[Rfam]
RNA sequence: AGGCAGCCUCUUUAUCAUUACAGUGGCAUUGGAGGUGUUGCGUUGCUCGGAUAGUAAACCUUUUGCUCUUCAGAUUAGCUGAGGGGGAGGCUCCUGCUUCCCUCCCUGAAAGCUGGUCUAGUAGUCUUAAGAACAUU
Numbered sequence: 001a002g003g004c005a006g007c008c009u010c011u012u013u014a015u016c017a018u019u020a021c022a023g024u025g026g027c028a029u030u031g032g033a034g035g036u037g038u039u040g041c042g043u044u045g046c047u048c049g050g051a052u053a054g055u056a057a058a059c060c061u062u063u064u065g066c067u068c069u070u071c072a073g074a075u076u077a078g079c080u081g082a083g084g085g086g087g088a089g090g091c092u093c094c095u096g097c098u099u100c101c102c103u104c105c106c107u108g109a110a111a112g113c114u115g116g117u118c119u120a121g122u123a124g125u126c127u128u129a130a131g132a133a134c135a136u137u
Base pairs, nucleotide, nucleotide: 002039003038004037005036007035008034009032010031013028015026016025017024060131061130062129065126067124072119073118074117075116076115078113079112080111083105084104085103086102087101
A member of the RNA family "Small nucleolar RNA snoR77" from Triticum aestivum, 137 nucleotides long.
It is annotated as an H/ACA-box small nucleolar RNA.
Gene Ontology terms of the family: RNA processing and nucleolus.
The match comes from Rfam's covariance-model search (94 bits).
On this family, see Marker et al., Curr Biol 2002: "Experimental RNomics: identification of 140 candidates for small non-messenger RNAs in the plant Arabidopsis thaliana".
The source organism's lineage runs through Eukaryota, Euphyllophyta, Mesangiospermae, Triticodae and Triticum.